Glycine riboswitch aptamer: an 86-nucleotide RNA from Thiopseudomonas alkaliphila.
Lineage of the source: Bacteria > Pseudomonadati > Gammaproteobacteria > Pseudomonadales > Thiopseudomonas.
On this family, see Babina et al., MBio 2017: "In Vivo Behavior of the Tandem Glycine Riboswitch in Bacillus subtilis".
The base pairs follow the family's consensus structure.
It scores 56 bits against the family's covariance model.
RNA sequence: GCGCGCCUUGCAGGAGAGAGAGGCUAAUCCUCCGCCGAAGGCGCAAACUCCCAUAAACGCUCAGGCCCAUGUACUGCAACACAAUU
Numbered sequence: 001g002c003g004c005g006c007c008u009u010g011c012a013g014g015a016g017a018g019a020g021a022g023g024c025u026a027a028u029c030c031u032c033c034g035c036c037g038a039a040g041g042c043g044c045a046a047a048c049u050c051c052c053a054u055a056a057a058c059g060c061u062c063a064g065g066c067c068c069a070u071g072u073a074c075u076g077c078a079a080c081a082c083a084a085u086u
Stems, first nucleotide, its partner, number of pairs: 008079006020032004034066003037062002041060003047054001